Annotation: This 111-nucleotide RNA sequence belongs to the Rfam family "DUF3800-I RNA". From the family's description: Actinobacteria, Firmicutes, Fusobacteria, Proteobacteria (1 example), Tenericutes (2 examples). It is annotated as a small RNA.
RNA sequence: UAAUAGUGCAGGUAGCAAUACACUGUAUACUCGCGUAACUGGACCAAUUGUUGUUUAAGCGAUAUUUGAUAUCGUCAGCCGCGGGGACGCCGAAAGGCGUUUUUUUUUACC
Numbered sequence: 001u002a003a004u005a006g007u008g009c010a011g012g013u014a015g016c017a018a019u020a021c022a023c024u025g026u027a028u029a030c031u032c033g034c035g036u037a038a039c040u041g042g043a044c045c046a047a048u049u050g051u052u053g054u055u056u057a058a059g060c061g062a063u064a065u066u067u068g069a070u071a072u073c074g075u076c077a078g079c080c081g082c083g084g085g086g087a088c089g090c091c092g093a094a095a096g097g098c099g100u101u102u103u104u105u106u107u108u109a110c111c
Stems, first nucleotide, its partner, number of pairs: 007027005012021003030085006039078003042055003059075006086101006